Rfam assigns this 103-nucleotide sequence from Actinomadura litoris to the family "SAH (S-adenosyl-L-homocysteine) riboswitch aptamer". The literature on the family includes a 2008 paper in Mol Cell by Wang et al., "Riboswitches that sense S-adenosylhomocysteine and activate genes involved in coenzyme recycling". The match comes from Rfam's covariance-model search (38 bits). Lineage of the source: Bacteria > Actinomycetes > Streptosporangiales > Thermomonosporaceae > Actinomadura. The base pairs follow the family's consensus structure, which is taken from published work.
[Rfam]
RNA sequence: CAGGCCGAGAGGCGCUGCAACGGGCUCAUGCCCGCCACGCUCGGCUCGGGACGGUCCGCGCCGUCCUCACCCUUCACUCUGCAAACAAGGGCGCCUCCCAGAA
Numbered sequence: 001c002a003g004g005c006c007g008a009g010a011g012g013c014g015c016u017g018c019a020a021c022g023g024g025c026u027c028a029u030g031c032c033c034g035c036c037a038c039g040c041u042c043g044g045c046u047c048g049g050g051a052c053g054g055u056c057c058g059c060g061c062c063g064u065c066c067u068c069a070c071c072c073u074u075c076a077c078u079c080u081g082c083a084a085a086c087a088a089g090g091g092c093g094c095c096u097c098c099c100a101g102a103a
Base pairs, nucleotide, nucleotide: 003046004045005044006043007042008041021034022033023032024031025030